Vault RNA: a 99-nucleotide RNA sequence from Conger conger. On this family, see Stadler et al., Mol Biol Evol 2009: "Evolution of Vault RNAs".

[Rfam]
RNA sequence: CAACAUGUUUAGCUCAGUGGUUACUUCGUUGUCAAGCUUUCAGUUUCCAAACUCUACCUUCUCCCAAGGGUUGUACCACGGGCGCUGGCCUGCGUUUUG
Numbered sequence: 001c002a003a004c005a006u007g008u009u010u011a012g013c014u015c016a017g018u019g020g021u022u023a024c025u026u027c028g029u030u031g032u033c034a035a036g037c038u039u040u041c042a043g044u045u046u047c048c049a050a051a052c053u054c055u056a057c058c059u060u061c062u063c064c065c066a067a068g069g070g071u072u073g074u075a076c077c078a079c080g081g082g083c084g085c086u087g088g089c090c091u092g093c094g095u096u097u098u099g
Base pairs, nucleotide, nucleotide: 004092005091007089012083013082014081015080017079018078019077020076025075027073028072

The match comes from Rfam's covariance-model search (36 bits).
The organism belongs to Conger, within Eukaryota.
Rfam describes the family as follows. This family of RNAs are found as part of the enigmatic vault ribonucleoprotein complex. The complex consists of a major vault protein (MVP), two minor vault proteins (VPARP and TEP1), and several small untranslated RNA molecules. It has been suggested that the vault complex is involved in drug resistance.
It is annotated as a non-coding RNA gene.